[Rfam]
RNA sequence: GAUGCUAUGAUGAGAUGAGACACCAGUUAGGUGUUGUAUAGAAGGCAGUGGAAGGGACAACAAUAUAUAUCCCCCCGUGAGCCUAAUUACUAUUAAACGACUUUUCCAUCUACUGAGCACC
Numbered sequence: 001g002a003u004g005c006u007a008u009g010a011u012g013a014g015a016u017g018a019g020a021c022a023c024c025a026g027u028u029a030g031g032u033g034u035u036g037u038a039u040a041g042a043a044g045g046c047a048g049u050g051g052a053a054g055g056g057a058c059a060a061c062a063a064u065a066u067a068u069a070u071c072c073c074c075c076c077g078u079g080a081g082c083c084u085a086a087u088u089a090c091u092a093u094u095a096a097a098c099g100a101c102u103u104u105u106c107c108a109u110c111u112a113c114u115g116a117g118c119a120c121c
Stems, first nucleotide, its partner, number of pairs: 001121001003119003
This 121-nucleotide sequence from Camellia sinensis belongs to the Rfam family "Small nucleolar RNA Z152/R70/R12/". The base pairs follow the family's consensus structure, which was predicted with PFOLD. NCBI's taxonomy places the organism under Eukaryota, Streptophyta, Euphyllophyta, Theaceae, Camellia. Rfam classes the family as a C/D-box small nucleolar RNA. The match comes from Rfam's covariance-model search (63 bits).